[Rfam]
RNA sequence: UGCCAUCGUGGAGAUGGCAUUCCUCCCUUAACCGUCGGGUUUCCCGUCUGAUGAUGCCUGCUAGAUU
Numbered sequence: 001u002g003c004c005a006u007c008g009u010g011g012a013g014a015u016g017g018c019a020u021u022c023c024u025c026c027c028u029u030a031a032c033c034g035u036c037g038g039g040u041u042u043c044c045c046g047u048c049u050g051a052u053g054a055u056g057c058c059u060g061c062u063a064g065a066u067u
Stems, first nucleotide, its partner, number of pairs: 010026004016058006034048001036046002